[Rfam]
RNA sequence: GAUGCGAUGAUGAUAAAAUAGCACGAAGGUGCGUGAAGGGCAGUGGACAAGACAAUACAAUAUUGUUUUGCCGUGAGCUCUCCUAAUUAAACGACUUCUCCUUCCACUGAGCAUA
Numbered sequence: 001g002a003u004g005c006g007a008u009g010a011u012g013a014u015a016a017a018a019u020a021g022c023a024c025g026a027a028g029g030u031g032c033g034u035g036a037a038g039g040g041c042a043g044u045g046g047a048c049a050a051g052a053c054a055a056u057a058c059a060a061u062a063u064u065g066u067u068u069u070g071c072c073g074u075g076a077g078c079u080c081u082c083c084u085a086a087u088u089a090a091a092c093g094a095c096u097u098c099u100c101c102u103u104c105c106a107c108u109g110a111g112c113a114u115a
Stems, first nucleotide, its partner, number of pairs: 002114004

Shown here is a 115-nucleotide sequence from Eutrema salsugineum, a member of the family "Small nucleolar RNA Z152/R70/R12/". Gene Ontology terms of the family: RNA processing and nucleolus. A reference for the family is Barneche et al. (2001), "Identification of 66 box C/D snoRNAs in Arabidopsis thaliana: extensive gene duplications generated multiple isoforms predicting new ribosomal RNA 2'-O-methylation sites", J Mol Biol.